[Rfam]
RNA sequence: CGAACCGUCAUCUGGGGAGUAGCCGCCGCGUUCGCGCGGAGCCCCGCAUCAACAUACUUGGCCGAGAGGUCAUGGUGCGGGGAGGACAGAGCGAUCUGUCGAGGCGAGACCACUGACGCCGUGCUUUCGGUCUGCCGGGCGGGAAGGCACAGCGUCUUUGGUUGUUCGUCUGCCCGGCACAGGAGUCCC
Numbered sequence: 001c002g003a004a005c006c007g008u009c010a011u012c013u014g015g016g017g018a019g020u021a022g023c024c025g026c027c028g029c030g031u032u033c034g035c036g037c038g039g040a041g042c043c044c045c046g047c048a049u050c051a052a053c054a055u056a057c058u059u060g061g062c063c064g065a066g067a068g069g070u071c072a073u074g075g076u077g078c079g080g081g082g083a084g085g086a087c088a089g090a091g092c093g094a095u096c097u098g099u100c101g102a103g104g105c106g107a108g109a110c111c112a113c114u115g116a117c118g119c120c121g122u123g124c125u126u127u128c129g130g131u132c133u134g135c136c137g138g139g140c141g142g143g144a145a146g147g148c149a150c151a152g153c154g155u156c157u158u159u160g161g162u163u164g165u166u167c168g169u170c171u172g173c174c175c176g177g178c179a180c181a182g183g184a185g186u187c188c189c
Stems, first nucleotide, its partner, number of pairs: 026039002042082010059072005084188004
About this RNA: Shown here is a 189-nucleotide RNA from Novosphingobium malaysiense, a member of the family "Manganese Mn2+ riboswitch aptamer (yybP-ykoY)". A reference for the family is Argaman et al. (2001), "Novel small RNA-encoding genes in the intergenic regions of Escherichia coli", Curr Biol. From the family's description: This RNA was originally discovered in E. coli during a large scale screen and was named SraF. The family was later found to exist upstream of related families of protein genes in many bacteria, including the the yybP and ykoK genes in B. subtilis. Lineage of the source: Bacteria > Pseudomonadati > Pseudomonadota > Sphingomonadaceae > Novosphingobium. The base pairs follow the family's consensus structure.